mir-190 microRNA precursor family: a 76-nucleotide RNA sequence from Cuscuta campestris. NCBI's taxonomy places the organism under Eukaryota, Embryophyta, Tracheophyta, Solanales, Cuscuta sect. Cleistogrammica. Rfam links the family to the GO terms miRNA-mediated post-transcriptional gene silencing and RISC complex. Rfam 15.1 lists 1,667 matches to the family in 854 species.
RNA sequence: AAACCCACAAAAUAUUUUGGGUAGUUGGUUUUUUAUUUUAAUAAAAAACCAACUACCCAAAAUAUUUUGUGGGUUU
Numbered sequence: 001a002a003a004c005c006c007a008c009a010a011a012a013u014a015u016u017u018u019g020g021g022u023a024g025u026u027g028g029u030u031u032u033u034u035a036u037u038u039u040a041a042u043a044a045a046a047a048a049c050c051a052a053c054u055a056c057c058c059a060a061a062a063u064a065u066u067u068u069g070u071g072g073g074u075u076u
Stems, first nucleotide, its partner, number of pairs: 005072005011066015027050005